Rfam assigns this 64-nucleotide RNA from Vombatus ursinus to the family "MAT2A 3'UTR stem loop B".
The family's consensus secondary structure is taken from published work.
For this family Rfam cites "New families of human regulatory RNA structures identified by comparative analysis of vertebrate genomes" (Parker et al., Genome Res, 2011).
[Rfam]
RNA sequence: GCAGGGACUUGGCAGCCUUGUGAUGUCAUACAAAGGAGUCACAGGACAACAUCUGAGGGUCUGU
Numbered sequence: 001g002c003a004g005g006g007a008c009u010u011g012g013c014a015g016c017c018u019u020g021u022g023a024u025g026u027c028a029u030a031c032a033a034a035g036g037a038g039u040c041a042c043a044g045g046a047c048a049a050c051a052u053c054u055g056a057g058g059g060u061c062u063g064u
Stems, first nucleotide, its partner, number of pairs: 001064005008057002012053001015047001017045008025031002